RNA sequence: UGAAAUAUCUGUCUCCGAGCCUGGCAACCUAAAUCUCACGACAUGGUUGAAAGGCCAGCGGGCGGGCAACCGCCCCAAGGGUAGCGCCGGAAACGGCACCGCCUCCCGCGGUUUGGAAAGGAGAGAAAGCAAUGACCGG
Numbered sequence: 001u002g003a004a005a006u007a008u009c010u011g012u013c014u015c016c017g018a019g020c021c022u023g024g025c026a027a028c029c030u031a032a033a034u035c036u037c038a039c040g041a042c043a044u045g046g047u048u049g050a051a052a053g054g055c056c057a058g059c060g061g062g063c064g065g066g067c068a069a070c071c072g073c074c075c076c077a078a079g080g081g082u083a084g085c086g087c088c089g090g091a092a093a094c095g096g097c098a099c100c101g102c103c104u105c106c107c108g109c110g111g112u113u114u115g116g117a118a119a120g121g122a123g124a125g126a127a128a129g130c131a132a133u134g135a136c137c138g139g
Stems, first nucleotide, its partner, number of pairs: 003133001012124005019055004025049005034041002061075002079104004084099001086097004105116002

The record is a 139-nucleotide RNA sequence from Dehalogenimonas formicexedens, which matches "Molybdenum/Tungsten riboswitch aptamer (Moco RNA motif)" in Rfam. Gene Ontology terms of the family: tungstate binding, molybdenum ion binding and regulation of gene expression. Lineage of the source: Bacteria > Chloroflexota > Dehalococcoidia > Dehalococcoidales > Dehalogenimonas.